[Rfam]
RNA sequence: GCCACAUGAUGUACUUGUAGAUAAUUUGAGCACUCUGUGUGAUGCUGACUUGUAUCUAUCACCCAAUAACUGAUGGUU
Numbered sequence: 001g002c003c004a005c006a007u008g009a010u011g012u013a014c015u016u017g018u019a020g021a022u023a024a025u026u027u028g029a030g031c032a033c034u035c036u037g038u039g040u041g042a043u044g045c046u047g048a049c050u051u052g053u054a055u056c057u058a059u060c061a062c063c064c065a066a067u068a069a070c071u072g073a074u075g076g077u078u
Stems, first nucleotide, its partner, number of pairs: 001077004030040004
Shown here is a 78-nucleotide sequence from Leptobrachium leishanense, a member of the family "Small nucleolar RNA SNORD83". A search with the family's covariance model found it, with a score of 55 bits. The organism belongs to Leptobrachium, within Eukaryota. Rfam classes the family as a C/D-box small nucleolar RNA. Its family is annotated with RNA processing and nucleolus in the Gene Ontology. Rfam 15.1 lists 1,393 matches to the family in 644 species.